[Rfam]
RNA sequence: GUCGGACUCGGGGAUGGUAUUUCCCCGGGUGGCUUCUCCGGGCGCCUAUCCCCCGGUCACAA
Dot-bracket structure: .....(((((((((......))).)))))).......(((((.........)))))......
The family of this 62-nucleotide sequence from Devosia chinhatensis is "sul1 RNA". Rfam 15.1 lists 519 matches to the family in 480 species. It is annotated as a riboswitch.